[Rfam]
RNA sequence: GCUAAAUUUAGUGCCGCCUUGUCUUUUCAAGUUUUCUCCUUUUGUAUGUAAGGAAUCACUUUUAUACUUGGUGGCAUAAAUCU
Numbered sequence: 001g002c003u004a005a006a007u008u009u010a011g012u013g014c015c016g017c018c019u020u021g022u023c024u025u026u027u028c029a030a031g032u033u034u035u036c037u038c039c040u041u042u043u044g045u046a047u048g049u050a051a052g053g054a055a056u057c058a059c060u061u062u063u064a065u066a067c068u069u070g071g072u073g074g075c076a077u078a079a080a081u082c083u
Base pairs, nucleotide, nucleotide: 012076013075014074015073016072017071018070021067022066030060031059032058035055037054038053039052040051041050
A member of the RNA family "Small nucleolar RNA snoR110", 83 nucleotides long.
A reference for the family is Marker et al. (2002), "Experimental RNomics: identification of 140 candidates for small non-messenger RNAs in the plant Arabidopsis thaliana", Curr Biol.
The sequence is in the family's curated seed alignment.